RNA sequence: UGCACAUUGCGUGCAGUUUGGGUUCAGAUUAACGCAAAAAGCCCCGCUAGUCCGGGGCUUUUUGUUGUUUUUAGCCCGAGGUUUUGGCACGGUCAAUUCGGGUGAUGGCAGGUGGGCUUUAGGCCCUUUUUUU
Numbered sequence: 001u002g003c004a005c006a007u008u009g010c011g012u013g014c015a016g017u018u019u020g021g022g023u024u025c026a027g028a029u030u031a032a033c034g035c036a037a038a039a040a041g042c043c044c045c046g047c048u049a050g051u052c053c054g055g056g057g058c059u060u061u062u063u064g065u066u067g068u069u070u071u072u073a074g075c076c077c078g079a080g081g082u083u084u085u086g087g088c089a090c091g092g093u094c095a096a097u098u099c100g101g102g103u104g105a106u107g108g109c110a111g112g113u114g115g116g117c118u119u120u121a122g123g124c125c126c127u128u129u130u131u132u133u
Base pairs, nucleotide, nucleotide: 038061039060040059041058042057043056044055045054046053114126115125116124117123
Gammaprotebacteria rimP leader: a 133-nucleotide sequence from Alteromonas sp. KUL49. A search with the family's covariance model found it, with a score of 53 bits. By type it is a cis-regulatory leader. Lineage of the source: Bacteria > Pseudomonadati > Gammaproteobacteria > Alteromonadales > Alteromonas.